[Rfam]
RNA: MIR7504 microRNA precursor family
RNA sequence: AAUAAGAGAAUGAUAAAUCAGAUUUUUCUUCUUGAUUUUCAGCCUUUUCCUCCAGAAAAAAUUUAAAUCAAAUUAAAAGCACAAAAAAUCAGGAGAAAAAAAUCUGAUUUGUCAUUCUCCCAUU
Numbered sequence: 001a002a003u004a005a006g007a008g009a010a011u012g013a014u015a016a017a018u019c020a021g022a023u024u025u026u027u028c029u030u031c032u033u034g035a036u037u038u039u040c041a042g043c044c045u046u047u048u049c050c051u052c053c054a055g056a057a058a059a060a061a062u063u064u065a066a067a068u069c070a071a072a073u074u075a076a077a078a079g080c081a082c083a084a085a086a087a088a089u090c091a092g093g094a095g096a097a098a099a100a101a102a103u104c105u106g107a108u109u110u111g112u113c114a115u116u117c118u119c120c121c122a123u124u
Stems, first nucleotide, its partner, number of pairs: 001124003006119017023101005029095011042082001045079004